The record is a 78-nucleotide RNA sequence, which matches "freshwater-2 RNA" in Rfam.
RNA sequence: CGUAGUAAUACACUACGUUUAUGGGGAACACCAUCCCCGUAAUCCAUAGAAUGGAUAACCUUAAGGAGAAACAAAAUG
Numbered sequence: 001c002g003u004a005g006u007a008a009u010a011c012a013c014u015a016c017g018u019u020u021a022u023g024g025g026g027a028a029c030a031c032c033a034u035c036c037c038c039g040u041a042a043u044c045c046a047u048a049g050a051a052u053g054g055a056u057a058a059c060c061u062u063a064a065g066g067a068g069a070a071a072c073a074a075a076a077u078g
Base pairs, nucleotide, nucleotide: 001017002016003015004014005013006012020041021040022039023038024037025036026035042056043055044054045053
Rfam classes the family as a cis-regulatory element.